[Rfam]
RNA sequence: GGGUUUGUGAGGAAAACGCCUCACAGGGUGGAAACAAGGACACACUCCUGCGAGCCGUUUUGA
Dot-bracket structure: ..............((((.(...(((((((............))).))))...).))))....

Overview:
Shown here is a 63-nucleotide RNA sequence, a member of the family "Cyano-1 RNA". The family's RNA type in Rfam is small RNA. The sequence is in the family's curated seed alignment.